RNA sequence: CGGGGUCGAGCGGGAGAGUUCAGCGAUUCGUCUGACGCCGAAGGAGCAAUGUCCCGGAAUCUCUCAGGCAAAGGGGACCGUUCGACACAA
Dot-bracket structure: .....((((((((......((((........)))).(((((..(((...((...))....))))).)))........)))))))).....
RNA: Glycine riboswitch aptamer
Organism: Sphingopyxis indica